RNA sequence: UGGUCAUUUCAAAGGGGGCAUGUUGGACUGUGAAACCAAAAGCUCUUUACGCUGUGACCAAAGAUUGAUGUUCUUCACAGAAGAAAGCAGGCACUUGAUAGUGUUGUGUUUUUCUGAGAAGAUAACAUG
Numbered sequence: 001u002g003g004u005c006a007u008u009u010c011a012a013a014g015g016g017g018g019c020a021u022g023u024u025g026g027a028c029u030g031u032g033a034a035a036c037c038a039a040a041a042g043c044u045c046u047u048u049a050c051g052c053u054g055u056g057a058c059c060a061a062a063g064a065u066u067g068a069u070g071u072u073c074u075u076c077a078c079a080g081a082a083g084a085a086a087g088c089a090g091g092c093a094c095u096u097g098a099u100a101g102u103g104u105u106g107u108g109u110u111u112u113u114c115u116g117a118g119a120a121g122a123u124a125a126c127a128u129g
Base pairs, nucleotide, nucleotide: 002059003058004057005056006055007054014047015046016045017044018043019042021040023039026037072122073121074120075119076118079115080114081113082112087107088106089105090104092103093102094101095100
RNA: Small nucleolar RNA SNORA25
Organism: Microtus ochrogaster